A member of the RNA family "Small Cajal body specific RNA 23" from Balaenoptera physalus, 127 nucleotides long. Its family is annotated with RNA processing, Cajal body and nucleolus in the Gene Ontology. The literature on the family includes a 2002 paper in EMBO J by Darzacq et al., "Cajal body-specific small nuclear RNAs: a novel class of 2'-O-methylation and pseudouridylation guide RNAs". The source organism's lineage runs through Eukaryota, Eumetazoa, Laurasiatheria, Artiodactyla and Balaenoptera. A search with the family's covariance model found it, with a score of 99 bits.
RNA sequence: CCGCUCACCAGCGGUUGGUCCCUCCAUGUGGUGCUGACCUGCCUGCCCUCCGUGAGCAAGAGAAACAGGACUGGUUUGGGGCUGUCCCGUCCGAGUGGACCUGGGAGACCACGGUCUCAGUACAACA
Numbered sequence: 001c002c003g004c005u006c007a008c009c010a011g012c013g014g015u016u017g018g019u020c021c022c023u024c025c026a027u028g029u030g031g032u033g034c035u036g037a038c039c040u041g042c043c044u045g046c047c048c049u050c051c052g053u054g055a056g057c058a059a060g061a062g063a064a065a066c067a068g069g070a071c072u073g074g075u076u077u078g079g080g081g082c083u084g085u086c087c088c089g090u091c092c093g094a095g096u097g098g099a100c101c102u103g104g105g106a107g108a109c110c111a112c113g114g115u116c117u118c119a120g121u122a123c124a125a126c127a
Base pairs, nucleotide, nucleotide: 003057004056005055006054007053008052017039018038019037020036024031025030068123070121071120072119073118074117076114077113078112081110083108085106086105087104088103089100090099091098092097
Dot-bracket structure: ..((((((........((((...((....))....))))............))))))..........(.(((((.(((..(.(.((((((((....))))..)))).).).)))..))))).)....